[Rfam]
RNA sequence: AACCUCAACUUCCACCGUGGGUUCCACCAGCGUCACUAUGUUUUACUUCCCCGAUAGACAUGGUUCGAUGCUUUUUAUUUGGUGGUUAAUGUUCUCUUCAUGAGAGAUCAUUGAUUUCGAUCCACGGUAGAUAAAUGGUUUUAUUAAAGAUGUAUCUCCAGCUAUUGAUAAAGAGUUCGGAGCCUUUUUCUUCGAGCUCGCUUUUACAAAUCUGAUAUAGUUGGUCAUAAUUCUUUCGACAUUU
Dot-bracket structure: ..............((((((((.(((..((((((((((.......((........))...))))..))))....))...)))(((...............................)))))))))))..................((.((.......((((((((.......((((.(((((.......))))).)))).................)))))))).......)).))........